[Rfam]
RNA sequence: CCGAUCAGUCGCUCAGUAGUUGGUGUAGAUCCUGUGAUUUUAGUCAGCAGCUACAUCUGGCUACUGGGUCUCUGAAGGCAAUU
Numbered sequence: 001c002c003g004a005u006c007a008g009u010c011g012c013u014c015a016g017u018a019g020u021u022g023g024u025g026u027a028g029a030u031c032c033u034g035u036g037a038u039u040u041u042a043g044u045c046a047g048c049a050g051c052u053a054c055a056u057c058u059g060g061c062u063a064c065u066g067g068g069u070c071u072c073u074g075a076a077g078g079c080a081a082u083u
Base pairs, nucleotide, nucleotide: 013067014066015065016064017063018062020060021059022058023056024055025054026053027052028051032050033049034048035047
Dot-bracket structure: ............((((((.(((((((((...((((...........)))))))))).))).))))))................
About this RNA
mir-221 microRNA precursor family: an 83-nucleotide RNA sequence from Microcaecilia unicolor. Taxonomically the source falls in Microcaecilia (Eukaryota, Craniata, Gnathostomata, Teleostomi). The literature on the family includes a 2008 paper in J Virol by Yao et al., "MicroRNA profile of Marek's disease virus-transformed T-cell line MSB-1: predominance of virus-encoded microRNAs". Pairs were carried over by alignment from the consensus structure, which was predicted with RNAalifold.